Record summary: A member of the RNA family "Betaproteobacteria toxic small RNA" from Pseudoduganella lurida, 62 nucleotides long.
[Rfam]
RNA sequence: UGUCUCCACUAUUCUCCUCCAAGAUAAUAGUUUGAAGCCCGCCACCGAGCGGGCUUUUUUUU
Numbered sequence: 001u002g003u004c005u006c007c008a009c010u011a012u013u014c015u016c017c018u019c020c021a022a023g024a025u026a027a028u029a030g031u032u033u034g035a036a037g038c039c040c041g042c043c044a045c046c047g048a049g050c051g052g053g054c055u056u057u058u059u060u061u062u
Stems, first nucleotide, its partner, number of pairs: 008031005013024002036055007
The family's consensus secondary structure was predicted with WAR. The organism belongs to Pseudoduganella, within Bacteria. Rfam 15.1 lists 951 matches to the family in 508 species. From the family's description: Overexpression in amino aid rich medium attenuates growth, suggesting role in repressing amino acid intake and metabolism. It scores 50 bits against the family's covariance model.